[Rfam]
RNA sequence: UCGUGCUAGAUGGGGAGGUAGCGGUGCCCUGUAACCCGCAAUCCGCUAUAGCGGGGUUGAUGUCUGGCCGAGGGUUUUCGUUUGUGAAACGGUCGGUCGUAAGUGGUGUUGAGGAUCGGGUCCUGCGCGACCAAGCCUCCUGAACCGUGUCAGGUCCGGAAGGAAGCAGCACUAAGGGAAUCGCUUGUGUGUGCCGCAGGGGUGCCUGGUCUGAGCUAACUGCUGCCGAUCCUUCACCAAACGAGAUUCGAAGCCAGAUGCACGG
Numbered sequence: 001u002c003g004u005g006c007u008a009g010a011u012g013g014g015g016a017g018g019u020a021g022c023g024g025u026g027c028c029c030u031g032u033a034a035c036c037c038g039c040a041a042u043c044c045g046c047u048a049u050a051g052c053g054g055g056g057u058u059g060a061u062g063u064c065u066g067g068c069c070g071a072g073g074g075u076u077u078u079c080g081u082u083u084g085u086g087a088a089a090c091g092g093u094c095g096g097u098c099g100u101a102a103g104u105g106g107u108g109u110u111g112a113g114g115a116u117c118g119g120g121u122c123c124u125g126c127g128c129g130a131c132c133a134a135g136c137c138u139c140c141u142g143a144a145c146c147g148u149g150u151c152a153g154g155u156c157c158g159g160a161a162g163g164a165a166g167c168a169g170c171a172c173u174a175a176g177g178g179a180a181u182c183g184c185u186u187g188u189g190u191g192u193g194c195c196g197c198a199g200g201g202g203u204g205c206c207u208g209g210u211c212u213g214a215g216c217u218a219a220c221u222g223c224u225g226c227c228g229a230u231c232c233u234u235c236a237c238c239a240a241a242c243g244a245g246a247u248u249c250g251a252a253g254c255c256a257g258a259u260g261c262a263c264g265g
Stems, first nucleotide, its partner, number of pairs: 001265006009058003012030004017025001019023001035055005063258006072249005078244006084237004091231002095227003099223002103220002105217003113212009122200006128191002131189001132187004138179004147172004155164003
Dot-bracket structure: ((((((..(((((((.(.(...).).))))....(((((...........))))))))....((((((...(((((.((((((((((...((..(((.((..(((((.....(((((((((((((((((.(((((..((((.....((((....(((....)))....))))...))))....)))).)))...))))))...)))))))))..))).)).)).)))..))..)))).)))))))))))...)))))).))))))